RNA sequence: GGGGUUUUAGCUCAGAUGGUAGAGCGCUCGCUUAGCAUGCGAGAGGUAGGGGGAUCGAUACCCUCAAACUCCA
Numbered sequence: 001g002g003g004g005u006u007u008u009a010g011c012u013c014a015g016a017u018g019g020u021a022g023a024g025c026g027c028u029c030g031c032u033u034a035g036c037a038u039g040c041g042a043g044a045g046g047u048a049g050g051g052g053g054a055u056c057g058a059u060a061c062c063c064u065c066a067a068a069c070u071c072c073a
Stems, first nucleotide, its partner, number of pairs: 001072007010025004027043005049065005

The family of this 73-nucleotide sequence from Chlamydomonas eustigma is "tRNA". The source organism's lineage runs through Eukaryota, Viridiplantae, Chlorophyta, Chlamydomonadales and Chlamydomonas.